[Rfam]
RNA sequence: CACACAGACCCGCACACGGCAGGAGCGGGGGACCCAAGGUUCCAUGCCUGUUCCGGGGUCUCCGGAACGGCUCGGGGUACAGCCACGCCGACGCGUGGCCGGGCAUCUCCAGCCCGCACCCGACAGCUCACCUCGCAGGCGCCGGAGAGGAACU
Numbered sequence: 001c002a003c004a005c006a007g008a009c010c011c012g013c014a015c016a017c018g019g020c021a022g023g024a025g026c027g028g029g030g031g032a033c034c035c036a037a038g039g040u041u042c043c044a045u046g047c048c049u050g051u052u053c054c055g056g057g058g059u060c061u062c063c064g065g066a067a068c069g070g071c072u073c074g075g076g077g078u079a080c081a082g083c084c085a086c087g088c089c090g091a092c093g094c095g096u097g098g099c100c101g102g103g104c105a106u107c108u109c110c111a112g113c114c115c116g117c118a119c120c121c122g123a124c125a126g127c128u129c130a131c132c133u134c135g136c137a138g139g140c141g142c143c144g145g146a147g148a149g150g151a152a153c154u
Base pairs, nucleotide, nucleotide: 001022025136026135027134028133029132030131035074075121076120077119083098084097085096086095101115102114103113104112
RNA: c-di-AMP riboswitch aptamer (ydaO/yuaA leader)